[Rfam]
RNA: Purine riboswitch aptamer
Organism: Paenibacillus mucilaginosus
RNA sequence: UAUACGUAAGGGACAACCUUUCGUAUAUCCCCGGCAAUAUGGGCCGGGGGUCUCUACAGGAGACCGUAAAUCUCCGGCUACGAACGGGCAGGUGAAGUGU
Dot-bracket structure: .................(.((((((...(((((((.......))))))).........(((((.......)))))...)))))).)..............
Numbered sequence: 001u002a003u004a005c006g007u008a009a010g011g012g013a014c015a016a017c018c019u020u021u022c023g024u025a026u027a028u029c030c031c032c033g034g035c036a037a038u039a040u041g042g043g044c045c046g047g048g049g050g051u052c053u054c055u056a057c058a059g060g061a062g063a064c065c066g067u068a069a070a071u072c073u074c075c076g077g078c079u080a081c082g083a084a085c086g087g088g089c090a091g092g093u094g095a096a097g098u099g100u
Stems, first nucleotide, its partner, number of pairs: 018086001020084006029049007059075005